Overview
This 54-nucleotide RNA belongs to the Rfam family "Streptococcus sRNA SpF59 (ldcC RNA)". For this family Rfam cites "Control of virulence by small RNAs in Streptococcus pneumoniae" (Mann et al., PLoS Pathog, 2012). The family's RNA type in Rfam is small RNA.
[Rfam]
RNA sequence: CGACCGCUCCCAUUCGGAAGCUAAGGCCACACGGACAGCCGGGUCGGAUGCCGA
Number, nucleotide and partner (000 for none) at each position: 001c046002g045003a044004c043005c042006g021007c020008u019009c000010c017011c016012a000013u000014u000015c000016g011017g010018a000019a008020g007021c006022u000023a000024a000025g000026g000027c000028c000029a000030c000031a000032c000033g000034g000035a000036c000037a000038g000039c000040c000041g000042g005043g004044u003045c002046g001047g000048a000049u000050g000051c000052c000053g000054a000